[Rfam]
RNA sequence: CGCAUAUUUCGCACAGACGGAGCUCGAGCGCCGAGGGAAAUCAUGAUCACAUUUAUCGACGAUCAUCGGUCGUUGUAUGGGGUCGAGCCGAUCUGCAGGGUAUUGCCGAUUGCUCCA
Dot-bracket structure: ...............(.((.........)).).............................................(((((......((.((.((((....)))).)).)))))))
ALIL pseudoknot: a 117-nucleotide sequence. On this family, see Mazauric et al., J Biol Chem 2008: "Apical loop-internal loop RNA pseudoknots: a new type of stimulator of -1 translational frameshifting in bacteria". Rfam 15.1 lists 2,146 matches to the family in 1,098 species. The base pairs follow the family's consensus structure, which is taken from published work.